RNA sequence: GUUCUGAAUGUAGAGCUUUUCUGAAUUUCAAAGAGGAUCUGAGAGGGAAAAUCGAGCUGCUAAUCUAUGGAUCCCUCAAACCUAUCUAUUCUCAAAAUAAUUUUAGAUAGGUUUGUGGUUUGCAUAUAUCAGGAGCUUCAUUUACUCUUCUAGGAUCCUUAUUGGAAUGAAGGGAGCUCUACGUUUGAUAACC
Numbered sequence: 001g002u003u004c005u006g007a008a009u010g011u012a013g014a015g016c017u018u019u020u021c022u023g024a025a026u027u028u029c030a031a032a033g034a035g036g037a038u039c040u041g042a043g044a045g046g047g048a049a050a051a052u053c054g055a056g057c058u059g060c061u062a063a064u065c066u067a068u069g070g071a072u073c074c075c076u077c078a079a080a081c082c083u084a085u086c087u088a089u090u091c092u093c094a095a096a097a098u099a100a101u102u103u104u105a106g107a108u109a110g111g112u113u114u115g116u117g118g119u120u121u122g123c124a125u126a127u128a129u130c131a132g133g134a135g136c137u138u139c140a141u142u143u144a145c146u147c148u149u150c151u152a153g154g155a156u157c158c159u160u161a162u163u164g165g166a167a168u169g170a171a172g173g174g175a176g177c178u179c180u181a182c183g184u185u186u187g188a189u190a191a192c193c
Stems, first nucleotide, its partner, number of pairs: 013179006020173002025168006037156001057135002060132002066126004074118001
RNA: MIR159 microRNA precursor family
Organism: Solanum lycopersicum